[Rfam]
RNA sequence: AGAGACGGCUGGAUGGUCGCUGGCUCACUUCGGUGGGCGAGAGGAAAGUCCGGGCGACGUAGAGCAGGGUGGUGGAUAACGUCCACCGGCCGUGAGGCUAGGGAAAGUGCCACAGAAAAGAUACCGCCGAGAAUGCCGUCUUACGAUGGCUUUUCGGUAAGGGUGAAAUGGUGCGGUAAGAGCGCACCGCGGACGAGGUGACUCGUCUGGCAGGGUAAACCCCACCCGGCGCAAGGCCAAGCAGAGAGCAGAGUCGGCUCGACUCGUUACGACUCUCGGGUAGGCUGCUUGAGGUGCGAGGCAACUCGCAUCCUAGAGGAAUGACCAUCGGUCGCCACGUGCGACGACAAAACCCGGCUUACAGGCCGUCUCUGGUA
Number, nucleotide and partner (000 for none) at each position: 001a373002g372003a371004g370005a369006c368007g367008g366009c365010u364011g362012g329013a328014u327015g326016g325017u324018c323019g000020c041021u040022g000023g038024c037025u036026c035027a034028c033029u000030u000031c000032g000033g028034u027035g026036g025037g024038c023039g000040a021041g020042a000043g000044g000045a000046a360047a359048g358049u000050c357051c356052g355053g354054g353055c231056g230057a000058c228059g000060u000061a000062g260063a259064g258065c257066a000067g227068g226069g225070u224071g223072g086073u085074g084075g083076a082077u000078a000079a000080c000081g000082u076083c075084c074085a073086c072087c101088g099089g098090c097091c096092g000093u000094g000095a000096g091097g090098c089099u088100a000101g087102g222103g221104a000105a000106a000107g220108u219109g216110c215111c214112a000113c000114a000115g000116a000117a000118a000119a000120g000121a000122u000123a000124c162125c161126g158127c157128c156129g155130a154131g153132a152133a151134u000135g000136c000137c000138g000139u000140c000141u000142u000143a000144c000145g000146a000147u000148g000149g000150c000151u133152u132153u131154u130155c129156g128157g127158u126159a000160a000161g125162g124163g000164u000165g000166a000167a000168a000169u000170g188171g187172u186173g185174c184175g183176g000177u000178a000179a000180g000181a000182g000183c175184g174185c173186a172187c171188c170189g211190c209191g208192g207193a206194c205195g204196a203197g202198g000199u000200g000201a000202c197203u196204c195205g194206u193207c192208u191209g190210g000211c189212a000213g000214g111215g110216u109217a000218a000219a108220c107221c103222c102223c071224a070225c069226c068227c067228g058229g000230c056231g055232c000233a000234a000235g286236g285237c284238c283239a000240a000241g000242c000243a000244g277245a276246g275247a274248g273249c000250a000251g265252a264253g263254u262255c261256g000257g065258c064259u063260c062261g255262a254263c253264u252265c251266g000267u000268u000269a000270c000271g000272a000273c248274u247275c246276u245277c244278g000279g000280g000281u000282a000283g238284g237285c236286u235287g000288c000289u000290u000291g000292a000293g312294g311295u310296g309297c308298g307299a306300g305301g000302c000303a000304a000305c300306u299307c298308g297309c296310a295311u294312c293313c000314u000315a000316g000317a000318g000319g000320a000321a000322u000323g018324a017325c016326c015327a014328u013329c012330g000331g000332u000333c000334g000335c000336c000337a000338c000339g000340u000341g000342c000343g000344a000345c000346g000347a000348c000349a000350a000351a000352a000353c054354c053355c052356g051357g050358c048359u047360u046361a000362c011363a000364g010365g009366c008367c007368g006369u005370c004371u003372c002373u001374g000375g000376u000377a000